[Rfam]
PyrR binding site: a 106-nucleotide sequence from Halobacillus sp. BBL2006. This family represents the PyrR binding site and terminator structure.
RNA sequence: UAGUCCUUUAAAGACAGUCCCGUGAGGCUGGAAAGGUUUCGGAAUACACAUGCGAGACAUGUGUCUAAAUCCCUUUUCUGCCUCUGUGCGGAUAAGGGAUUUUUUA
Number, nucleotide and partner (000 for none) at each position: 001u000002a000003g038004u000005c036006c035007u034008u033009u032010a000011a000012a000013g000014a000015c030016a029017g028018u027019c026020c000021c000022g000023u000024g000025a000026g019027g018028c017029u016030g015031g000032a009033a008034a007035g006036g005037u000038u003039u000040c000041g000042g000043a000044a000045u000046a064047c063048a062049c061050a060051u059052g058053c000054g000055a000056g000057a000058c052059a051060u050061g049062u048063g047064u046065c000066u000067a102068a101069a100070u099071c098072c097073c096074u095075u094076u000077u092078c091079u090080g089081c000082c000083u000084c000085u000086g000087u000088g000089c080090g079091g078092a077093u000094a075095a074096g073097g072098g071099a070100u069101u068102u067103u000104u000105u000106a000

Lineage of the source: Bacteria > Bacillati > Bacillota > Bacilli > Halobacillus.